[Rfam]
RNA sequence: CUGCACACUGAAGACCCAUGUGUGCUUUAUAGCUCCCUUGGUUUUUAAUCUGUGCUACAGUAAAAUGCGGUCUGUAACCUCUGCAUUGGAGGAGCUGUUUUCUCCUCCAAAUGUAUUCAACAGACUAGUACAUUG
Numbered sequence: 001c002u003g004c005a006c007a008c009u010g011a012a013g014a015c016c017c018a019u020g021u022g023u024g025c026u027u028u029a030u031a032g033c034u035c036c037c038u039u040g041g042u043u044u045u046u047a048a049u050c051u052g053u054g055c056u057a058c059a060g061u062a063a064a065a066u067g068c069g070g071u072c073u074g075u076a077a078c079c080u081c082u083g084c085a086u087u088g089g090a091g092g093a094g095c096u097g098u099u100u101u102c103u104c105c106u107c108c109a110a111a112u113g114u115a116u117u118c119a120a121c122a123g124a125c126u127a128g129u130a131c132a133u134u135g
Stems, first nucleotide, its partner, number of pairs: 003055005010049001013046002016041003020037001022035001024033003057073001059071001061069001082119002084113004088108007
RNA: Small nucleolar RNA SNORA22